RNA sequence: GGGCAAGAUAGGUGAAGUGACCCCACCGGCAAGCCGGCGAAAUCACAUCACCUUCUCUUAUUCGCAGCGGGGCUGCUCAACGGAUAUCCUGCUCUGGCGAGAC
Number, nucleotide and partner (000 for none) at each position: 001g094002g093003g092004c091005a090006a000007g088008a087009u086010a000011g000012g051013u050014g049015a048016a000017g046018u000019g044020a043021c000022c000023c000024c039025a000026c037027c036028g035029g034030c000031a000032a000033g000034c029035c028036g027037g026038c000039g024040a000041a000042a000043u020044c019045a000046c017047a000048u015049c014050a013051c012052c000053u000054u000055c000056u083057c082058u000059u000060a000061u000062u000063c000064g076065c075066a074067g073068c072069g000070g000071g000072g068073c067074u066075g065076c064077u000078c000079a000080a000081c000082g057083g056084a000085u000086a009087u008088c007089c000090u005091g004092c003093u002094c001095u000096g000097g000098c000099g000100a000101g000102a000103c000

The family of this 103-nucleotide RNA from Sphingomonas sp. S-NIH.Pt15_0812 is "traJ-II RNA". It is annotated as a cis-regulatory element.